Record summary:
Rfam assigns this 366-nucleotide sequence from Microcoleus sp. FACHB-1515 to the family "Bacterial RNase P class A". The source organism's lineage runs through Bacteria, Bacillati, Cyanophyceae, Microcoleaceae and Microcoleus.
RNA sequence: AGAGGAGGCGAGGCAGUUGCGGGCGCAAGCCUGAGGAAAGUCCGGUCUCCCGAACGACCACACCUGCUGGAUAACGUCCAGUGCGAGCGAUCGUGAGGAUAGUGCCACAGAAACAUACCGCCUUCGGGUAAGGGUGCAAAGGUGCGGUAAGAGCGCACCAGCAGCAUCGAGAGGUGCUGGCUCGGUAAACCCCGGUGGGGAGUAAGGUCGAAGGAACAAGGGUUGGUCGUUUUCCCGUUCCGAGCAGGAAGCAAUUCCUGUGCAUCCGCUAGAGACAUUUGGUAACAGAUGUUCGAGAUAGAUAACUGCCCUGGCAUGGGGCAACUCAAUGUCAGAACAGAACCCGGCUUAUGUCCGCCUCUUUCC
Numbered sequence: 001a002g003a004g005g006a007g008g009c010g011a012g013g014c015a016g017u018u019g020c021g022g023g024c025g026c027a028a029g030c031c032u033g034a035g036g037a038a039a040g041u042c043c044g045g046u047c048u049c050c051c052g053a054a055c056g057a058c059c060a061c062a063c064c065u066g067c068u069g070g071a072u073a074a075c076g077u078c079c080a081g082u083g084c085g086a087g088c089g090a091u092c093g094u095g096a097g098g099a100u101a102g103u104g105c106c107a108c109a110g111a112a113a114c115a116u117a118c119c120g121c122c123u124u125c126g127g128g129u130a131a132g133g134g135u136g137c138a139a140a141g142g143u144g145c146g147g148u149a150a151g152a153g154c155g156c157a158c159c160a161g162c163a164g165c166a167u168c169g170a171g172a173g174g175u176g177c178u179g180g181c182u183c184g185g186u187a188a189a190c191c192c193c194g195g196u197g198g199g200g201a202g203u204a205a206g207g208u209c210g211a212a213g214g215a216a217c218a219a220g221g222g223u224u225g226g227u228c229g230u231u232u233u234c235c236c237g238u239u240c241c242g243a244g245c246a247g248g249a250a251g252c253a254a255u256u257c258c259u260g261u262g263c264a265u266c267c268g269c270u271a272g273a274g275a276c277a278u279u280u281g282g283u284a285a286c287a288g289a290u291g292u293u294c295g296a297g298a299u300a301g302a303u304a305a306c307u308g309c310c311c312u313g314g315c316a317u318g319g320g321g322c323a324a325c326u327c328a329a330u331g332u333c334a335g336a337a338c339a340g341a342a343c344c345c346g347g348c349u350u351a352u353g354u355c356c357g358c359c360u361c362u363u364u365c366c
Stems, first nucleotide, its partner, number of pairs: 001362005007356002011352001012310007020033005038350003042347004047202004058244001061197003065194002067081005082096001083094004097192002102190002104186003118133002120129003141159006161181001162179007206267002212259005238250004274293008
Clan: RNaseP clan.